[Rfam]
RNA sequence: GGAUGUUUCUCGGGUGACUCACCCCCAAAUCGGGCUCCCUCCUCUCUGGUUCCAGGGUGCUUUACCCAGAACUGCC
Numbered sequence: 001g002g003a004u005g006u007u008u009c010u011c012g013g014g015u016g017a018c019u020c021a022c023c024c025c026c027a028a029a030u031c032g033g034g035c036u037c038c039c040u041c042c043u044c045u046c047u048g049g050u051u052c053c054a055g056g057g058u059g060c061u062u063u064a065c066c067c068a069g070a071a072c073u074g075c076c
Stems, first nucleotide, its partner, number of pairs: 002075001005072002008070003012067006020059005028051007
RNA: mir-9223 microRNA precursor family